[Rfam]
Rfam assigns this 74-nucleotide RNA sequence from Roseomonas acroporae to the family "Makes More Granules Regulator RNA (mmgR)". The family is grouped with related families in Rfam's "suhB sRNA clan".
RNA sequence: GGGCGCUGCCUUUCUUGGACGUUUCCUCCCUGAACUCGGCGGCACCUUCCGGUGCCGCCUUUUUUCUGCGGAAU
Numbered sequence: 001g002g003g004c005g006c007u008g009c010c011u012u013u014c015u016u017g018g019a020c021g022u023u024u025c026c027u028c029c030c031u032g033a034a035c036u037c038g039g040c041g042g043c044a045c046c047u048u049c050c051g052g053u054g055c056c057g058c059c060u061u062u063u064u065u066c067u068g069c070g071g072a073a074u
Base pairs, nucleotide, nucleotide: 008020010018011017038059039058040057041056042055043054044053045052046051
Dot-bracket structure: .......(.((.....)).).................(((((((((....)))))))))...............
The organism belongs to Roseomonas, within Bacteria. The family has 87 seed sequences and 1,791 matches in Rfam 15.1. Gene Ontology terms of the family: protein binding, DNA-templated transcription, termination and response to nitrogen compound. About the family: SuhB later renamed mmgR (makes more granules regulator) was a putative non-coding RNA found multiple times in the Agrobacterium tumefaciens genome and related alpha-proteobacteria. Other non-coding RNAs uncovered in the same analysis include: speF, ybhL, metA, and serC.Several studies inSinorhizobium meliloti showed that suhB element is indeed a non-coding RNA:firstly it was detected on Northern blot and called Sm8RNA, secondly in an RNAseq study referred to as SmelC689.The mutant phenotype's (strain lacking the small RNA) cytoplasm contains higher content of polyhydroxybutyrate (PBH)storage granules than wild type strain. The sRNA is required to limit the PBH intracellular accumulation when the nitrogen-fixing Sinorhizobium meliloti is under condition of surplus carbon in relation to nitrogen. It has been renamed to mmgR. Further study confirmed that mmgR fine-tunes the regulation of PBH storage.Northern blot confirmed the expression of the sRNA in other rhizobia species. MmgR homologues were found in most alpha-proteobacteria.